[Rfam]
RNA sequence: UGCUCACAAAAGUUUUCUGGGCAGCUUCCAAACAGCUGCCAAUUCUGGGUGCAACACCCCCAUUCUUUCCUGGGAGGCACCAGGUAUG
Numbered sequence: 001u002g003c004u005c006a007c008a009a010a011a012g013u014u015u016u017c018u019g020g021g022c023a024g025c026u027u028c029c030a031a032a033c034a035g036c037u038g039c040c041a042a043u044u045c046u047g048g049g050u051g052c053a054a055c056a057c058c059c060c061c062a063u064u065c066u067u068u069c070c071u072g073g074g075a076g077g078c079a080c081c082a083g084g085u086a087u088g
Stems, first nucleotide, its partner, number of pairs: 005019002008016002012052001020040007047059003061076001064074001069084005
RNA: Tymovirus/Pomovirus/Furovirus tRNA-like 3' UTR element